Background
Small nucleolar RNA Z13/snr52: a 112-nucleotide RNA sequence from Pisolithus microcarpus. A search with the family's covariance model found it, with a score of 60 bits. By type it is a C/D-box small nucleolar RNA. The family has 42 seed sequences and 1,203 matches in Rfam 15.1.

[Rfam]
RNA sequence: GUCGAAUAUAGGAUGAAAAAAAUACGGAUGUAAGGACGGGUCUCAGACUCGCGUGUCCGAGAGCGCAUUAAACCCAUGUGGAUCUCUCCGUUGCCUUCCUUCUGAGUUUCUU
Numbered sequence: 001g002u003c004g005a006a007u008a009u010a011g012g013a014u015g016a017a018a019a020a021a022a023u024a025c026g027g028a029u030g031u032a033a034g035g036a037c038g039g040g041u042c043u044c045a046g047a048c049u050c051g052c053g054u055g056u057c058c059g060a061g062a063g064c065g066c067a068u069u070a071a072a073c074c075c076a077u078g079u080g081g082a083u084c085u086c087u088c089c090g091u092u093g094c095c096u097u098c099c100u101u102c103u104g105a106g107u108u109u110c111u112u
Stems, first nucleotide, its partner, number of pairs: 004110002025090004